[Rfam]
RNA sequence: CCGUGCUAGGUGGGGAGGUAGCGGUGCCCUGUCACUCGCAAUCCGCUAGAGCGAGACUGAAUCCCUUUUCUAGGUCAUGCCAUCGUUUGGUCUGCCCUGAGUAAGUAGUGUUGACAUUUGGGUUCUGCGCAACGGAAACUCAUGAACCCUGUCAGGUCCGGAAGGAAGCAGCAGUAAGUGAAUCCUUCCGUGUGCCGCAGAGUUGCCUGGAUCGAGCUAACUGCUCAGGUAACGCUUGGGAUGGUAUGAUCAAAAAAAGGUGCACGG
Number, nucleotide and partner (000 for none) at each position: 001c267002c266003g265004u264005g263006c262007u000008a000009g058010g057011u056012g030013g029014g028015g027016a000017g025018g000019u023020a000021g000022c000023g019024g000025u017026g000027c015028c014029c013030u012031g000032u000033c000034a000035c055036u054037c053038g052039c051040a000041a000042u000043c000044c000045g000046c000047u000048a000049g000050a000051g039052c038053g037054a036055g035056a011057c010058u009059g000060a000061a000062u000063c000064c260065c259066u258067u257068u256069u255070c000071u000072a000073g251074g250075u249076c248077a247078u000079g000080c244081c243082a242083u241084c240085g000086u238087u000088u000089g235090g000091u000092c000093u231094g230095c000096c000097c228098u227099g226100a225101g224102u223103a000104a000105g221106u220107a218108g217109u216110g000111u000112u000113g000114a000115c000116a212117u211118u210119u209120g208121g207122g206123u205124u201125c200126u199127g198128c197129g196130c192131a191132a000133c190134g189135g188136a187137a186138a183139c000140u181141c180142a179143u178144g000145a000146a000147c000148c000149c174150u173151g172152u171153c000154a000155g000156g000157u166158c165159c164160g000161g000162a000163a000164g159165g158166a157167a000168g000169c000170a000171g152172c151173a150174g149175u000176a000177a000178g143179u142180g141181a140182a000183u138184c000185c000186u137187u136188c135189c134190g133191u131192g130193u000194g000195c000196c129197g128198c127199a126200g125201a124202g000203u000204u000205g123206c122207c121208u120209g119210g118211a117212u116213c000214g000215a000216g109217c108218u107219a000220a106221c105222u000223g102224c101225u100226c099227a098228g097229g000230u094231a093232a000233c000234g000235c089236u000237u000238g086239g000240g084241a083242u082243g081244g080245u000246a000247u077248g076249a075250u074251c073252a000253a000254a000255a069256a068257a067258a066259g065260g064261u000262g006263c005264a004265c003266g002267g001
Bacterial large signal recognition particle RNA: a 267-nucleotide RNA from Alkalicoccobacillus porphyridii. NCBI's taxonomy places the organism under Bacteria, Bacillota, Caryophanales, Bacillaceae, Alkalicoccobacillus. Rfam classes the family as a non-coding RNA gene. For this family Rfam cites "Kinship in the SRP RNA family" (Rosenblad et al., RNA Biol, 2009).